[Rfam]
RNA: Streptococcus sRNA SpF59 (ldcC RNA)
RNA sequence: UGACCACUUUCCAAAAGAAAGGCAGGGCUAUGGCAGCCGGGUCAAUUGCCGU
Dot-bracket structure: (((((.(((((.....)))))..................)))))........